[Rfam]
RNA sequence: CCACUCUGGAAAGCAGCAGUCCCGGCAUCCGUGCCUGCGUACUGCUCGCCCACGGUGAAAGCCCGCAUCCGCGGUCGACGAGCUGUCGAAGCGGAUGUCGCGGUGAAACUCUCAGGCCGGAUGACAGAGGGGGA
Numbered sequence: 001c002c003a004c005u006c007u008g009g010a011a012a013g014c015a016g017c018a019g020u021c022c023c024g025g026c027a028u029c030c031g032u033g034c035c036u037g038c039g040u041a042c043u044g045c046u047c048g049c050c051c052a053c054g055g056u057g058a059a060a061g062c063c064c065g066c067a068u069c070c071g072c073g074g075u076c077g078a079c080g081a082g083c084u085g086u087c088g089a090a091g092c093g094g095a096u097g098u099c100g101c102g103g104u105g106a107a108a109c110u111c112u113c114a115g116g117c118c119g120g121a122u123g124a125c126a127g128a129g130g131g132g133g134a
Base pairs, nucleotide, nucleotide: 001132002131004129005128006127007126008125015046016045017044018043019042020041048117049116050115052112055111057109061104062103
Overview: Glycine riboswitch aptamer: a 134-nucleotide RNA sequence from Compostimonas suwonensis. Lineage of the source: Bacteria > Actinomycetota > Actinomycetes > Microbacteriaceae > Compostimonas. Rfam links the family to the GO term glycine biosynthetic process.